[Rfam]
Nucleotides: 052
Stems, first nucleotide, its partner, number of pairs: 016044007025035004
Number, partner (000 for none) and nucleotide at each position: 001000g002000u003000u004000c005000c006000c007000g008000g009000a010000g011000g012000u013000c014000a015000c016044c017043a018042c019041c020040c021039g022038a023000c024000a025035g026034c027033g028032c029000g030000a031000u032028g033027c034026g035025c036000c037000c038022u039021c040020g041019g042018g043017u044016g045000c046000g047000a048000a049000a050000c051000u052000g
Background:
This 52-nucleotide RNA from Labrenzia sp. 011 belongs to the Rfam family "ffh sRNA". The base pairs follow the family's consensus structure, which is taken from published work. Lineage of the source: Bacteria > Pseudomonadota > Hyphomicrobiales > Stappiaceae > Labrenzia.